[Rfam]
RNA sequence: ACCAGCCUCGUGCUGGUGCGGUGCAGGAAGUCCUGCCGGGCGUUACGGACCUUGCGAUGGGCGCGGGCGACCUUGGCUUUGGCCUUGCGCCGGUUCGCCGAGCCACGCUGGCAGCGGGCCAGCAGCCGCUGAUAGCGGGCCAGGUUCCGGGCCUUGCGUCGCAGGUGCCGGGGAUUGGCGAUACGGUCGCCGUCGCUGAUCACGGCGAAGUCUUUGAUGCCCAGGUCGACGCCGACCUCAUGCCCGGUCGCCUCCAGCGGGGUCGGCUGGUCGGUGUCGACGGCGAACGUCACGAACCAGCGGCCGUCGGUGUCGCGGGACACGACCACCGUGGUCGGGUCCAGUUCGGCCCUGUCGACGUCCGGCCACGACCACGCCACCUCCACCGGGCCGAUGGUCUUGGCGACGUGCAACUCACCGUUCUUCAUCCGGAACCCGGAGCGGGUGUAGUGCGCCGACUGGCGGGCGGUGCGGGACUUGAACCGCGGGUAGCGGGCACGUCCGGCGAAGAAGUUGACGUACGCGGUGUGCUGGUGGCGCAGGGUCUGCUGCAACGGCACCGAGGACACCUCGGACAGGAACGCCAGGUCUUCGG
Number, nucleotide and partner (000 for none) at each position: 001a000002c016003c015004a014005g013006c000007c000008u000009c000010g000011u000012g000013c005014u004015g003016g002017u580018g000019c578020g000021g576022u575023g033024c000025a031026g000027g000028a000029a000030g000031u025032c000033c023034u000035g000036c000037c000038g000039g000040g068041c067042g000043u065044u000045a000046c061047g000048g000049a058050c000051c056052u000053u000054g000055c000056g051057a000058u049059g000060g000061g046062c000063g000064c000065g043066g000067g041068c040069g146070a145071c144072c143073u142074u000075g140076g000077c138078u137079u000080u000081g000082g133083c000084c131085u000086u000087g129088c128089g127090c000091c125092g000093g123094u000095u121096c000097g000098c000099c116100g115101a000102g000103c110104c000105a000106c000107g000108c000109u000110g103111g000112c000113a000114g000115c100116g099117g000118g000119c000120c000121a095122g000123c093124a000125g091126c000127c089128g088129c087130u000131g084132a000133u082134a000135g000136c000137g078138g077139g000140c075141c000142a073143g072144g071145u070146u069147c000148c000149g213150g212151g211152c210153c000154u208155u207156g206157c205158g203159u202160c000161g200162c198163a000164g197165g000166u195167g194168c000169c192170g191171g190172g000173g000174a000175u000176u000177g000178g188179c000180g000181a000182u000183a000184c000185g000186g000187u000188c178189g000190c171191c170192g169193u000194c167195g166196c000197u164198g162199a000200u161201c000202a159203c158204g000205g157206c156207g155208a154209a000210g152211u151212c150213u149214u000215u000216g000217a000218u000219g000220c574221c573222c000223a571224g570225g569226u568227c000228g000229a000230c000231g267232c266233c265234g264235a263236c262237c261238u260239c259240a000241u000242g258243c000244c257245c000246g255247g254248u000249c000250g000251c000252c000253u000254c247255c246256a000257g244258c242259g239260g238261g237262g236263u235264c234265g233266g232267c231268u000269g000270g000271u563272c562273g561274g560275u559276g558277u557278c556279g000280a000281c551282g550283g549284c548285g547286a000287a545288c544289g000290u542291c000292a000293c000294g000295a000296a535297c534298c533299a532300g531301c530302g529303g527304c526305c525306g524307u523308c000309g000310g352311u000312g351313u349314c348315g347316c000317g000318g342319g341320a340321c339322a000323c337324g336325a335326c334327c000328a000329c000330c000331g000332u000333g000334g326335u325336c324337g323338g000339g321340u320341c319342c318343a000344g000345u000346u000347c315348g314349g313350c000351c312352c310353u000354g000355u000356c471357g470358a000359c468360g467361u465362c464363c000364g000365g000366c462367c461368a460369c000370g000371a000372c000373c454374a000375c452376g451377c450378c000379a000380c000381c445382u444383c443384c000385a000386c439387c438388g437389g436390g435391c000392c000393g000394a000395u431396g430397g429398u000399c000400u000401u000402g423403g422404c000405g419406a000407c000408g418409u417410g000411c000412a000413a000414c000415u000416c000417a409418c408419c405420g000421u000422u403423c402424u000425u000426c000427a000428u000429c397430c396431g395432g000433a000434a000435c390436c389437c388438g387439g386440a000441g000442c000443g383444g382445g381446u000447g000448u000449a000450g377451u376452g375453c000454g373455c000456c000457g000458a000459c000460u368461g367462g366463c000464g362465g361466g000467c360468g359469g000470u357471g356472c000473g000474g000475g515476a514477c513478u512479u511480g000481a000482a000483c000484c000485g000486c504487g503488g502489g501490u500491a000492g499493c000494g000495g000496g000497c000498a000499c492500g490501u489502c488503c487504g486505g000506c000507g000508a000509a000510g000511a479512a478513g477514u476515u475516g000517a000518c000519g000520u000521a000522c000523g307524c306525g305526g304527u303528g000529u302530g301531c300532u299533g298534g297535u296536g000537g000538c000539g000540c000541a000542g290543g000544g288545u287546c000547u285548g284549c283550u282551g281552c000553a000554a000555c000556g278557g277558c276559a275560c274561c273562g272563a271564g000565g000566a000567c000568a226569c225570c224571u223572c000573g221574g220575a022576c021577a000578g019579g000580a017581a000582c594583g593584c000585c000586a000587g000588g000589u000590c000591u000592u000593c583594g582595g000
RNA: Saccharopolyspora sRNA 389